Shown here is a 67-nucleotide sequence from Pipistrellus kuhlii, a member of the family "mir-9256 microRNA precursor family". Gene Ontology terms of the family: miRNA-mediated post-transcriptional gene silencing and RISC complex. The source organism's lineage runs through Eukaryota, Craniata, Teleostomi, Mammalia and Pipistrellus. A search with the family's covariance model found it, with a score of 80 bits.
RNA sequence: CUAUACACUGAGUGGUCAGAUUAUUAUGAUCUGUGAAAGCAUAAUAAUCUGUCCACUUAGUGUAUAU
Number, nucleotide and partner (000 for none) at each position: 001c000002u000003a000004u064005a063006c062007a061008c060009u059010g058011a057012g056013u055014g054015g053016u000017c051018a000019g049020a048021u047022u046023a045024u044025u043026a042027u041028g040029a000030u000031c000032u000033g000034u000035g000036a000037a000038a000039g000040c028041a027042u026043a025044a024045u023046a022047a021048u020049c019050u000051g017052u000053c015054c014055a013056c012057u011058u010059a009060g008061u007062g006063u005064a004065u000066a000067u000